gut-2 RNA: a 48-nucleotide sequence. The base pairs follow the family's consensus structure, which is taken from published work.

RNA sequence: AUCCAUCGGAUAAUUGGAUUCGAUGAAGGGCUAAUAGGAGCCGAGAGU
Numbered sequence: 001a002u003c004c005a006u007c008g009g010a011u012a013a014u015u016g017g018a019u020u021c022g023a024u025g026a027a028g029g030g031c032u033a034a035u036a037g038g039a040g041c042c043g044a045g046a047g048u
Base pairs, nucleotide, nucleotide: 004025005024006023007022008021009020010019011018029042030041031040032039
Rfam's curators put it in the seed alignment. The family's RNA type in Rfam is small RNA.